[Rfam]
RNA sequence: UAGGCCGAUGCGGGAGAGCCGGUCACCGUCAGGCGGAUCGGCACCGAAGGAGCAAUCCUCCCCGACAAUCUCUCAGGUACGCGUACCGCAUCGGACUG
Numbered sequence: 001u002a003g004g005c006c007g008a009u010g011c012g013g014g015a016g017a018g019c020c021g022g023u024c025a026c027c028g029u030c031a032g033g034c035g036g037a038u039c040g041g042c043a044c045c046g047a048a049g050g051a052g053c054a055a056u057c058c059u060c061c062c063c064g065a066c067a068a069u070c071u072c073u074c075a076g077g078u079a080c081g082c083g084u085a086c087c088g089c090a091u092c093g094g095a096c097u098g
Stems, first nucleotide, its partner, number of pairs: 006093008019041006043078003046074002050072003056065002
A member of the RNA family "Glycine riboswitch aptamer" from Cryobacterium tepidiphilum, 98 nucleotides long. The source organism's lineage runs through Bacteria, Bacillati, Micrococcales, Microbacteriaceae and Cryobacterium.